[Rfam]
RNA: L17-Actino-Proteobacteria ribosomal protein leader
RNA sequence: CCGACAGGUAACCGCCUGCUCGGAUACUGACACCGGUACCUCAUACGGCCGGUGCAG
Numbered sequence: 001c002c003g004a005c006a007g008g009u010a011a012c013c014g015c016c017u018g019c020u021c022g023g024a025u026a027c028u029g030a031c032a033c034c035g036g037u038a039c040c041u042c043a044u045a046c047g048g049c050c051g052g053u054g055c056a057g
Stems, first nucleotide, its partner, number of pairs: 001023004005018004027057003031054007